[Rfam]
RNA sequence: UGUUGAAAAAGGCAAACUAUUCGAAAGGGUAGGACGCAAAGCAAAGGGUCUAAAAGUAUUAAAACUAAUGAUCGCCUGGCUACCAAA
Numbered sequence: 001u002g003u004u005g006a007a008a009a010a011g012g013c014a015a016a017c018u019a020u021u022c023g024a025a026a027g028g029g030u031a032g033g034a035c036g037c038a039a040a041g042c043a044a045a046g047g048g049u050c051u052a053a054a055a056g057u058a059u060u061a062a063a064a065c066u067a068a069u070g071a072u073c074g075c076c077u078g079g080c081u082a083c084c085a086a087a
Stems, first nucleotide, its partner, number of pairs: 012037002017032006040081003045077003048072003055066003